[Rfam]
RNA sequence: GUCGAUCUGUUGGGGUGCCCCGCGCGGGGCUGAGAUGCGCAAGCGAACCCAUCGAACCUGAACCGGCUAGCACCGGCGGAGGGAACAGAGACGUUCGCGGC
Dot-bracket structure: .....(((((((((.((((((....)))))......((....)))..)))).....(((...((((......))))...)))..)))))............
Rfam assigns this 101-nucleotide RNA from Actibacterium mucosum to the family "TPP riboswitch aptamer (THI element)". NCBI's taxonomy places the organism under Bacteria, Alphaproteobacteria, Roseobacteraceae, Actibacterium, Actibacterium mucosum. The family's consensus secondary structure is taken from published work.